[Rfam]
Shown here is a 68-nucleotide RNA sequence from Halalkalibacillus sediminis, a member of the family "Bacillaceae-1 RNA". Pairs were carried over by alignment from the consensus structure, which is taken from published work.
RNA sequence: GACUCCUGCGGGUCGACUAAGUUCGGUCACGUCCUGUGACCAACGUCGACACUAGCACUUCCUGUCCG
Numbered sequence: 001g002a003c004u005c006c007u008g009c010g011g012g013u014c015g016a017c018u019a020a021g022u023u024c025g026g027u028c029a030c031g032u033c034c035u036g037u038g039a040c041c042a043a044c045g046u047c048g049a050c051a052c053u054a055g056c057a058c059u060u061c062c063u064g065u066c067c068g
Stems, first nucleotide, its partner, number of pairs: 012050006026040005055067001057065002